Description
This 60-nucleotide sequence from Tiarella polyphylla belongs to the Rfam family "Plastid-psbA-4 3UTR RNA". Plastid psbA-4 is a non-coding RNA (ncRNA) present in plastids. Rfam's curators put it in the seed alignment. Rfam classes the family as a cis-regulatory element. On this family, see Richter et al., Plant Commun 2023: "Retrograde signaling in plants: A critical review focusing on the GUN pathway and beyond".
RNA sequence: AAUAAAGGAGCAAUACCAACCCUCUUGAUAGAACAAGAAAGUGGCUAUUGCUCCUUUACU
Numbered sequence: 001a002a003u004a005a006a007g008g009a010g011c012a013a014u015a016c017c018a019a020c021c022c023u024c025u026u027g028a029u030a031g032a033a034c035a036a037g038a039a040a041g042u043g044g045c046u047a048u049u050g051c052u053c054c055u056u057u058a059c060u
Stems, first nucleotide, its partner, number of pairs: 004057012019042002023038005
Dot-bracket structure: ...((((((((((((...((..(((((......)))))..))...))))))))))))...